Description
The family of this 103-nucleotide sequence from Thalictrum thalictroides is "MIR827 microRNA precursor family". Gene Ontology terms of the family: miRNA-mediated post-transcriptional gene silencing and RISC complex. The organism belongs to Thalictrum, within Eukaryota. The match comes from Rfam's covariance-model search (71 bits). The family's consensus secondary structure was predicted with RNAalifold.
[Rfam]
RNA sequence: AUAUGUUUUGUUGAUUGUCAUCUAAUUAUGUUUCCCUGUGUAAAGUACAGUUGAGCAUAUAAUAUAUUGAAAUUAUGAUUAGAUGACCAUCAGCAAACACAUU
Dot-bracket structure: ....((((.((((((.((((((((((((((...........................................)))))))))))))).)))))))))).....